[Rfam]
RNA: Small nucleolar RNA SNORD90
RNA sequence: AACAUGAGCUUCGAUGCAUCCAAUGAUGAAGCUGCAUAGGGCAGAUUCUGAGCUGGGAGCUGCGGCUCCUAAAACGCUGAUCUUCUGUUUAUGCGGACUGAGGAUGCGGCUGUGUUU
Number, nucleotide and partner (000 for none) at each position: 001a000002a000003c000004a000005u000006g000007a000008g000009c000010u000011u000012c000013g110014a000015u108016g107017c106018a105019u104020c103021c102022a000023a000024u000025g000026a000027u000028g000029a000030a000031g000032c096033u095034g094035c093036a092037u091038a000039g086040g085041g084042c000043a000044g081045a000046u000047u080048c079049u000050g077051a000052g075053c000054u000055g000056g000057g000058a000059g000060c000061u000062g000063c000064g000065g000066c000067u000068c000069c000070u000071a000072a000073a000074a000075c052076g000077c050078u000079g048080a047081u044082c000083u000084u041085c040086u039087g000088u000089u000090u000091a037092u036093g035094c034095g033096g032097a000098c000099u000100g000101a000102g021103g020104a019105u018106g017107c016108g015109g000110c013111u000112g000113u000114g000115u000116u000117u000